[Rfam]
RNA sequence: UGAACUCAAAUUUGUGUGCAGUUGGAACGUUUUCCUACAUUAACCGCUAGGGGCGCUGUUCCAAUUGCAGACAAAAUUGAGUUA
Number, nucleotide and partner (000 for none) at each position: 001u000002g000003a000004a000005c000006u000007c000008a078009a077010a000011u075012u074013u073014g072015u071016g000017u000018g068019c000020a066021g065022u064023u063024g062025g061026a060027a059028c058029g057030u000031u000032u000033u000034c052035c051036u050037a000038c000039a000040u046041u000042a000043a000044c000045c000046g040047c000048u000049a000050g036051g035052g034053g000054c000055g000056c000057u029058g028059u027060u026061c025062c024063a023064a022065u021066u020067g000068c018069a000070g000071a015072c014073a013074a012075a011076a000077u009078u008079g000080a000081g000082u000083u000084a000
Annotation:
This 84-nucleotide RNA from Bombyx mori belongs to the Rfam family "mir-2807 microRNA precursor family". It scores 73 bits against the family's covariance model. A reference for the family is Liu et al. (2010), "MicroRNAs of Bombyx mori identified by Solexa sequencing", BMC Genomics. Pairs were carried over by alignment from the consensus structure, which was predicted with RNAalifold.